[Rfam]
A member of the RNA family "mir-190 microRNA precursor family" from Mytilus edulis, 74 nucleotides long. Gene Ontology terms of the family: RISC complex and miRNA-mediated post-transcriptional gene silencing. The family is grouped with related families in Rfam's "mir-50 clan". It scores 59 bits against the family's covariance model. On this family, see Kloosterman et al., Nucleic Acids Res 2006: "Cloning and expression of new microRNAs from zebrafish". Taxonomically the source falls in Mytilus (Eukaryota, Protostomia, Mytilida, Mytiloidea). The family's consensus secondary structure was predicted with RNAalifold.
RNA sequence: ACUACUGUCAGAUAUGUUUGAUAUAUUUGGUGGUAGAUAUAGUCACCGAGUAUCAAACAUGUCAUGAUAGUGGC
Numbered sequence: 001a002c003u004a005c006u007g008u009c010a011g012a013u014a015u016g017u018u019u020g021a022u023a024u025a026u027u028u029g030g031u032g033g034u035a036g037a038u039a040u041a042g043u044c045a046c047c048g049a050g051u052a053u054c055a056a057a058c059a060u061g062u063c064a065u066g067a068u069a070g071u072g073g074c
Stems, first nucleotide, its partner, number of pairs: 005070005011063014029047005
Dot-bracket structure: ....(((((.((((((((((((((....(((((.........)))))..))))))))))))))..)))))....